Shown here is a 104-nucleotide sequence from endosymbiont of Escarpia spicata, a member of the family "Vibrio RNA AS9". The base pairs follow the family's consensus structure, which was predicted with RNAfold. Rfam classes the family as an antisense RNA. It scores 52 bits against the family's covariance model. NCBI's taxonomy places the organism under Bacteria, Pseudomonadati, Pseudomonadota, Gammaproteobacteria, sulfur-oxidizing symbionts. A reference for the family is Liu et al. (2009), "Experimental discovery of sRNAs in Vibrio cholerae by direct cloning, 5S/tRNA depletion and parallel sequencing", Nucleic Acids Res.
RNA sequence: CUGGCUGCAGCGCUCUUUGGUGAGCGUAAGGCAGAUCAGGCCGCGGCCGUAACGGGCCAUGAAAUUGACCGCAUCCGGGGUCACAAUCUCGGCAGCCAUGAUGA
Numbered sequence: 001c002u003g004g005c006u007g008c009a010g011c012g013c014u015c016u017u018u019g020g021u022g023a024g025c026g027u028a029a030g031g032c033a034g035a036u037c038a039g040g041c042c043g044c045g046g047c048c049g050u051a052a053c054g055g056g057c058c059a060u061g062a063a064a065u066u067g068a069c070c071g072c073a074u075c076c077g078g079g080g081u082c083a084c085a086a087u088c089u090c091g092g093c094a095g096c097c098a099u100g101a102u103g104a
Stems, first nucleotide, its partner, number of pairs: 003058004010027006035050002039047001041045001066104001068102001070100001071096002075092003078088002